[Rfam]
RNA sequence: UCUAGUCAAAGGCAAAUCUAUUGAAAAAUGGAGUCGCAAAGUUUCAGGUCUAAGGGAAUGUACAUAUGAUUUUUCAGAUAAAAUCCUAUGAUGGCUGGGCUGCCUAG
Number, nucleotide and partner (000 for none) at each position: 001u000002c000003u000004a000005g000006u000007c000008a000009a000010a000011g000012g037013c036014a000015a000016a000017u032018c031019u030020a029021u028022u027023g000024a000025a000026a000027a022028a021029u020030g019031g018032a017033g000034u000035c000036g013037c012038a000039a000040a101041g100042u099043u098044u000045c097046a096047g095048g092049u091050c090051u000052a000053a000054g000055g086056g085057a084058a000059u000060g000061u000062a000063c000064a000065u000066a000067u000068g000069a000070u000071u000072u000073u000074u000075c000076a000077g000078a000079u000080a000081a000082a000083a000084u057085c056086c055087u000088a000089u000090g050091a049092u048093g000094g000095c047096u046097g045098g043099g042100c041101u040102g000103c000104c000105u000106a000107g000
The family of this 107-nucleotide sequence from Salipaludibacillus keqinensis is "c-di-GMP-I riboswitch aptamer".
A search with the family's covariance model found it, with a score of 65 bits.
The family's consensus secondary structure is taken from published work.
NCBI's taxonomy places the organism under Bacteria, Bacillota, Bacilli, Caryophanales, Salipaludibacillus.
Gene Ontology term of the family: cyclic-di-GMP binding.
GEMM was predicted in a large-scale screen for bacterial structured RNA regulatory elements.